[Rfam]
RNA sequence: GCGGGUGUGGUGAAAUUGGUAGACACGCCAGACUUAGGAUCUGGUGCCGAAAGGUGUGAAGGUUCGAGUCCUUUCACCCGCA
Numbered sequence: 001g002c003g004g005g006u007g008u009g010g011u012g013a014a015a016u017u018g019g020u021a022g023a024c025a026c027g028c029c030a031g032a033c034u035u036a037g038g039a040u041c042u043g044g045u046g047c048c049g050a051a052a053g054g055u056g057u058g059a060a061g062g063u064u065c066g067a068g069u070c071c072u073u074u075c076a077c078c079c080g081c082a
Stems, first nucleotide, its partner, number of pairs: 001081007010026003028044005058074005
Background
Shown here is an 82-nucleotide sequence from Neptunitalea chrysea, a member of the family "tRNA". Pairs were carried over by alignment from the consensus structure, which is taken from published work. Taxonomically the source falls in Neptunitalea (Bacteria, Pseudomonadati, Bacteroidota, Flavobacteriia). By type it is a transfer RNA.